[Rfam]
Nucleotides: 328
Base pairs, nucleotide, nucleotide: 001328002327003326004325007322008321009320012284013283014282015281016280017279018278021070022069023068024067025066034049035048036047037046038045039043079312080311081310082309083308089260090259091258092257102116103115104114105113106112117135118134120132121131122130136256137255138254139253140252141251142250156240157239158238159237160236285300286299287298288297289296290295
Number, partner (000 for none) and nucleotide at each position: 001328u002327u003326u004325g005000a006000g007322g008321c009320a010000a011000g012284c013283u014282c015281u016280u017279g018278u019000u020000c021070a022069g023068g024067g025066g026000u027000c028000a029000c030000a031000c032000a033000c034049g035048g036047g037046u038045g039043c040000c041000u042000g043039g044000u045038c046037a047036c048035u049034c050000u051000u052000g053000a054000c055000a056000a057000a058000c059000u060000a061000a062000a063000c064000u065000g066025c067024c068023c069022u070021u071000g072000g073000g074000a075000a076000g077000g078000u079312c080311u081310g082309a083308g084000a085000g086000a087000a088000g089260g090259g091258u092257c093000g094000c095000u096000u097000u098000u099000c100000c101000a102116c103115g104114c105113u106112c107000u108000a109000g110000a111000c112106g113105g114104g115103c116102g117135c118134c119000c120132c121131u122130c123000u124000a125000a126000u127000a128000c129000g130122g131121a132120g133000a134118g135117g136256a137255c138254g139253g140252g141251g142250g143000u144000u145000c146000a147000g148000a149000a150000a151000c152000u153000a154000g155000a156240c157239c158238a159237u160236g161000g162000a163000g164000g165000a166000g167000g168000g169000a170000g171000u172000c173000u174000a175000u176000g177000a178000c179000g180000g181000a182000g183000g184000g185000a186000c187000c188000u189000g190000g191000u192000c193000u194000u195000u196000c197000a198000c199000a200000u201000u202000g203000g204000a205000c206000a207000g208000u209000c210000c211000c212000u213000u214000c215000g216000g217000a218000g219000a220000u221000g222000u223000u224000g225000a226000u227000c228000u229000c230000g231000c232000u233000c234000c235000a236160c237159g238158u239157g240156g241000c242000u243000g244000a245000a246000a247000u248000c249000a250142c251141u252140c253139c254138c255137g256136u257092g258091a259090c260089c261000g262000g263000c264000g265000a266000a267000g268000g269000u270000a271000g272000c273000a274000c275000a276000a277000u278018a279017c280016g281015a282014g283013a284012g285300g286299u287298g288297c289296u290295u291000g292000c293000c294000c295290g296289g297288g298287c299286a300285u301000a302000a303000c304000u305000c306000a307000a308083u309082u310081c311080a312079g313000a314000c315000u316000a317000c318000a319000c320009u321008g322007c323000u324000u325004c326003a327002a328001a